Shown here is a 143-nucleotide sequence from Lucilia cuprina, a member of the family "Small nucleolar RNA psi18S-1377". Rfam classes the family as an H/ACA-box small nucleolar RNA. Gene Ontology terms of the family: RNA processing and nucleolus. Rfam describes the family as follows. psi18S-1377 is a member of the H/ACA class of snoRNA. This family is responsible for guiding the modification of uridines 1377 and 1279 to pseudouridine in Drosophila 18S rRNA. The match comes from Rfam's covariance-model search (49 bits).

RNA sequence: ACGUUCUUGUGUUAUUUGUUGAUUGUGUUUUUUAUAAAAAUCAAUUAUUGUCAAAAAGAACGUAAAUUAAACUAAAACAACAACUCGUUAUUAUUGAAUCUGAAAUUUUAAGAUUAAAUAUAUUCCAUUUGUUGCUUACAAUU
Numbered sequence: 001a002c003g004u005u006c007u008u009g010u011g012u013u014a015u016u017u018g019u020u021g022a023u024u025g026u027g028u029u030u031u032u033u034a035u036a037a038a039a040a041u042c043a044a045u046u047a048u049u050g051u052c053a054a055a056a057a058g059a060a061c062g063u064a065a066a067u068u069a070a071a072c073u074a075a076a077a078c079a080a081c082a083a084c085u086c087g088u089u090a091u092u093a094u095u096g097a098a099u100c101u102g103a104a105a106u107u108u109u110a111a112g113a114u115u116a117a118a119u120a121u122a123u124u125c126c127a128u129u130u131g132u133u134g135c136u137u138a139c140a141a142u143u
Base pairs, nucleotide, nucleotide: 002062003061004060005059006058007057010053011052016047018045019044020043021042022041090124092122093121094120097115098114099113100112